Small nucleolar RNA ACA59: a 147-nucleotide RNA from Aotus nancymaae. Rfam classes the family as an H/ACA-box small nucleolar RNA. NCBI's taxonomy places the organism under Eukaryota, Boreoeutheria, Euarchontoglires, Primates, Aotus. The base pairs follow the family's consensus structure, which was predicted with WAR.

[Rfam]
RNA sequence: GCCCAGGGUACGUUCUCACGGCGAUGCUGCCCUCGCAGCCCGUGGAUGACCCUGGGAGCGUUACUGCCUCACAACGUUUGUGCCUCAGUUACCGAUUGAUGUAGUGAGGGGAGCGAUACUUACGCUCAUUGGUGGUAAGGAACAGCU
Numbered sequence: 001g002c003c004c005a006g007g008g009u010a011c012g013u014u015c016u017c018a019c020g021g022c023g024a025u026g027c028u029g030c031c032c033u034c035g036c037a038g039c040c041c042g043u044g045g046a047u048g049a050c051c052c053u054g055g056g057a058g059c060g061u062u063a064c065u066g067c068c069u070c071a072c073a074a075c076g077u078u079u080g081u082g083c084c085u086c087a088g089u090u091a092c093c094g095a096u097u098g099a100u101g102u103a104g105u106g107a108g109g110g111g112a113g114c115g116a117u118a119c120u121u122a123c124g125c126u127c128a129u130u131g132g133u134g135g136u137a138a139g140g141a142a143c144a145g146c147u
Stems, first nucleotide, its partner, number of pairs: 002056008020031003069135004074102005080096002107126002110123001112121002
Gene Ontology terms of the family: nucleolus and RNA processing.